Overview
Rfam assigns this 89-nucleotide RNA from Methylocucumis oryzae to the family "c-di-GMP-I-GGC riboswitch aptamer". The source organism's lineage runs through Bacteria, Pseudomonadati, Methylococcales, Methylococcaceae and Methylocucumis.
[Rfam]
RNA sequence: AUUGAUAAACGGCAAACCUGUCGUGAGGCAGGGACGCAAAGCUGCGGGUCUUUUUGUUUUAUGAUAGGAAGAUAGCCGGGUUGCAGAUU
Numbered sequence: 001a002u003u004g005a006u007a008a009a010c011g012g013c014a015a016a017c018c019u020g021u022c023g024u025g026a027g028g029c030a031g032g033g034a035c036g037c038a039a040a041g042c043u044g045c046g047g048g049u050c051u052u053u054u055u056g057u058u059u060u061a062u063g064a065u066a067g068g069a070a071g072a073u074a075g076c077c078g079g080g081u082u083g084c085a086g087a088u089u
Stems, first nucleotide, its partner, number of pairs: 001089001003086001012037002017032006035075001040082004045078003048073011
Record summary:
The match comes from Rfam's covariance-model search (61 bits).